Shown here is a 113-nucleotide RNA from Sesamum indicum, a member of the family "MIR394 microRNA precursor family".
RNA sequence: CUUACAGAGUUUAUUGGCAUUCUGUCCACCUCCUCCUCCUCCUCUUGUGGUUUGAACAAACGACAAGAAUUCACUGUAAGGAGGUGGGCAUACUGCCAACUGACCUCUGUUGG
Numbered sequence: 001c002u003u004a005c006a007g008a009g010u011u012u013a014u015u016g017g018c019a020u021u022c023u024g025u026c027c028a029c030c031u032c033c034u035c036c037u038c039c040u041c042c043u044c045u046u047g048u049g050g051u052u053u054g055a056a057c058a059a060a061c062g063a064c065a066a067g068a069a070u071u072c073a074c075u076g077u078a079a080g081g082a083g084g085u086g087g088g089c090a091u092a093c094u095g096c097c098a099a100c101u102g103a104c105c106u107c108u109g110u111u112g113g
Stems, first nucleotide, its partner, number of pairs: 011103001014099006023090011
A reference for the family is Jones-Rhoades and Bartel (2004), "Computational identification of plant microRNAs and their targets, including a stress-induced miRNA", Mol Cell. NCBI's taxonomy places the organism under Eukaryota, eudicotyledons, Gunneridae, Lamiales, Sesamum. Its family is annotated with miRNA-mediated post-transcriptional gene silencing and RISC complex in the Gene Ontology.